[Rfam]
RNA sequence: UACACCCUACAGUGUGCGUGACCUUCCUUGAAGUUUUGAGCCAAUACCAUUACAUUGGGAACCUGGUCUCUGUCUAUGGCUUGAUUACUCUUUUAUAGAGGAACAUAAAAUAGACAGGAGGGUACCCACCUGCGAGAGCGGAGUUCAAACUUUAGGGAUUACGGCAUAUGUGGGGUUUUU
Numbered sequence: 001u002a003c004a005c006c007c008u009a010c011a012g013u014g015u016g017c018g019u020g021a022c023c024u025u026c027c028u029u030g031a032a033g034u035u036u037u038g039a040g041c042c043a044a045u046a047c048c049a050u051u052a053c054a055u056u057g058g059g060a061a062c063c064u065g066g067u068c069u070c071u072g073u074c075u076a077u078g079g080c081u082u083g084a085u086u087a088c089u090c091u092u093u094u095a096u097a098g099a100g101g102a103a104c105a106u107a108a109a110a111u112a113g114a115c116a117g118g119a120g121g122g123u124a125c126c127c128a129c130c131u132g133c134g135a136g137a138g139c140g141g142a143g144u145u146c147a148a149a150c151u152u153u154a155g156g157g158a159u160u161a162c163g164g165c166a167u168a169u170g171u172g173g174g175g176u177u178u179u180u
Stems, first nucleotide, its partner, number of pairs: 002178001004176008012167004017163003032151004037147005057127003061123004068117001071116007083104001088100004

Overview:
The family of this 180-nucleotide sequence from Desulfofarcimen acetoxidans is "6S / SsrS RNA". Lineage of the source: Bacteria > Bacillati > Eubacteriales > Peptococcaceae > Desulfofarcimen acetoxidans. For this family Rfam cites "6S RNA regulates E. coli RNA polymerase activity" (Wassarman and Storz, Cell, 2000). Rfam classes the family as a non-coding RNA gene. The family's consensus secondary structure is taken from published work.